[Rfam]
RNA sequence: AUGAGGUUGAAACCCCAUGUGACGAAGUCACAUGCUACGAAUGGUUUCAGCCGACCUGCCGCCGAACAGAGUGAGGGGGCGAUACCCGGG
Dot-bracket structure: .......((((((...((((((.....))))))..........))))))........(((.((..((...))..)).)))..........
Numbered sequence: 001a002u003g004a005g006g007u008u009g010a011a012a013c014c015c016c017a018u019g020u021g022a023c024g025a026a027g028u029c030a031c032a033u034g035c036u037a038c039g040a041a042u043g044g045u046u047u048c049a050g051c052c053g054a055c056c057u058g059c060c061g062c063c064g065a066a067c068a069g070a071g072u073g074a075g076g077g078g079g080c081g082a083u084a085c086c087c088g089g090g
Stems, first nucleotide, its partner, number of pairs: 008049006017033006058080003062076002066072002